[Rfam]
RNA sequence: GGUUUAAAGGGUCCGUAGGCGGGCUAAUAAGUCAGAGGUGAAAUCCAGCAGCUUAACUGUUGAACUGCCUUUGAUACUGUUAGUCUUGAGUUAUAUGGAAGUAGAUAGAAUGUGUAGUGUAGCGGUGAAAUGCAUAGAUAUUACACAGAAUACCGAUUGCGAAGGCAGUCUACUACGUAUAUACUGACGCUAAUGGACGAAAGCGUGGGGAGCGAACAGGAUUAGAUACCCUGGUAGUCCACGCCGUAAACGAUGGACACUAGUUGUUGGAAUUAUUCAGUGACUAAGCGAAAGUGAUAAGUGUCCCACCUGGGGAGUACGAUCGCAAGAUUGAAACUCAAAGGAAU
Numbered sequence: 001g002g003u004u005u006a007a008a009g010g011g012u013c014c015g016u017a018g019g020c021g022g023g024c025u026a027a028u029a030a031g032u033c034a035g036a037g038g039u040g041a042a043a044u045c046c047a048g049c050a051g052c053u054u055a056a057c058u059g060u061u062g063a064a065c066u067g068c069c070u071u072u073g074a075u076a077c078u079g080u081u082a083g084u085c086u087u088g089a090g091u092u093a094u095a096u097g098g099a100a101g102u103a104g105a106u107a108g109a110a111u112g113u114g115u116a117g118u119g120u121a122g123c124g125g126u127g128a129a130a131u132g133c134a135u136a137g138a139u140a141u142u143a144c145a146c147a148g149a150a151u152a153c154c155g156a157u158u159g160c161g162a163a164g165g166c167a168g169u170c171u172a173c174u175a176c177g178u179a180u181a182u183a184c185u186g187a188c189g190c191u192a193a194u195g196g197a198c199g200a201a202a203g204c205g206u207g208g209g210g211a212g213c214g215a216a217c218a219g220g221a222u223u224a225g226a227u228a229c230c231c232u233g234g235u236a237g238u239c240c241a242c243g244c245c246g247u248a249a250a251c252g253a254u255g256g257a258c259a260c261u262a263g264u265u266g267u268u269g270g271a272a273u274u275a276u277u278c279a280g281u282g283a284c285u286a287a288g289c290g291a292a293a294g295u296g297a298u299a300a301g302u303g304u305c306c307c308a309c310c311u312g313g314g315g316a317g318u319a320c321g322a323u324c325g326c327a328a329g330a331u332u333g334a335a336a337c338u339c340a341a342a343g344g345a346a347u
Stems, first nucleotide, its partner, number of pairs: 001310003009307001011198004016192001018191003022085007030078002032074009046062006089185003092181006100174007107151001111147008122133003159166002203244006212238002217233004255306006263284009288295002312339003321332004
Description: The record is a 347-nucleotide part of an RNA from Lutibacter oricola, which matches "Bacterial small subunit ribosomal RNA" in Rfam. Clan: SSU clan. The family's consensus secondary structure is taken from published work.